[Rfam]
RNA sequence: UGACCGGGACGGCCCGGUCUCUCUGGACGGGCAAUAGCCGGGACGGCCCGG
Numbered sequence: 001u002g003a004c005c006g007g008g009a010c011g012g013c014c015c016g017g018u019c020u021c022u023c024u025g026g027a028c029g030g031g032c033a034a035u036a037g038c039c040g041g042g043a044c045g046g047c048c049c050g051g
Base pairs, nucleotide, nucleotide: 002019003018004017005016006015007014008013038051039050040049041048042047
RNA: Guanidine-II riboswitch aptamer (mini-ykkC)
Organism: Pannonibacter phragmitetus